[Rfam]
RNA sequence: CAACUACGAGACGAAGUGAAUGGGUCAUGACCAUAGCUUCGGACCCAGGAAAGUCCCCGGGCCGCUAGCUGCAGAGAUGCAAGCUCGGAAAUGAGUAUUAAUCUUUGAGUGGAGGUGGUCUGUCGCAAAACAGGGCUGAGACAAGUGUGGAGCCGAUGACCUCUUCGCCAAAGCAAGUUAGCCGAAUCUCACAGUUAUUCACUUGGUUCUUCACAGGACUAACCGAACGGGGCUUAUGAUCUCGUAGUU
Numbered sequence: 001c002a003a004c005u006a007c008g009a010g011a012c013g014a015a016g017u018g019a020a021u022g023g024g025u026c027a028u029g030a031c032c033a034u035a036g037c038u039u040c041g042g043a044c045c046c047a048g049g050a051a052a053g054u055c056c057c058c059g060g061g062c063c064g065c066u067a068g069c070u071g072c073a074g075a076g077a078u079g080c081a082a083g084c085u086c087g088g089a090a091a092u093g094a095g096u097a098u099u100a101a102u103c104u105u106u107g108a109g110u111g112g113a114g115g116u117g118g119u120c121u122g123u124c125g126c127a128a129a130a131c132a133g134g135g136c137u138g139a140g141a142c143a144a145g146u147g148u149g150g151a152g153c154c155g156a157u158g159a160c161c162u163c164u165u166c167g168c169c170a171a172a173g174c175a176a177g178u179u180a181g182c183c184g185a186a187u188c189u190c191a192c193a194g195u196u197a198u199u200c201a202c203u204u205g206g207u208u209c210u211u212c213a214c215a216g217g218a219c220u221a222a223c224c225g226a227a228c229g230g231g232g233c234u235u236a237u238g239a240u241c242u243c244g245u246a247g248u249u
Stems, first nucleotide, its partner, number of pairs: 002249010014204006023045003051235003055232004070081004083096004098176002104172004111166004122160004145153002206219005

A member of the RNA family "RNase MRP" from Gossypium armourianum, 249 nucleotides long. Its family is annotated with ribonuclease MRP activity, rRNA processing and ribonuclease MRP complex in the Gene Ontology. Taxonomically the source falls in Gossypium (Eukaryota, Embryophyta, Pentapetalae, Malvales). Its Rfam clan is "RNaseP clan".